[Rfam]
RNA: Small nucleolar RNA snoR31/Z110/Z27
Organism: Triticum turgidum
RNA sequence: AGUGUUAUUUUUCUGAAACUUUGAAACAAUCUUAGGACACCUUCUGACACAGUGCUUAAUUUUCUGUGAAUGAGAAGUCAUCUGUAUUCUGAUGAUACA
Dot-bracket structure: .((((((.....................................((...)).........................................)))))).